Source information:
A member of the RNA family "skipping-rope RNA" from Eubacterium aggregans, 80 nucleotides long. It scores 69 bits against the family's covariance model.
RNA sequence: GGAACCAGAGGACGGAACGGGCAGCCGUCGCCCCUCACAAGAGGUUAGGAGAUGUGGGAAGUGUCACCCCACCUGAUUCC
Numbered sequence: 001g002g003a004a005c006c007a008g009a010g011g012a013c014g015g016a017a018c019g020g021g022c023a024g025c026c027g028u029c030g031c032c033c034c035u036c037a038c039a040a041g042a043g044g045u046u047a048g049g050a051g052a053u054g055u056g057g058g059a060a061g062u063g064u065c066a067c068c069c070c071a072c073c074u075g076a077u078u079c080c
Stems, first nucleotide, its partner, number of pairs: 001080004006075003011029005020065004031049001033044004054072005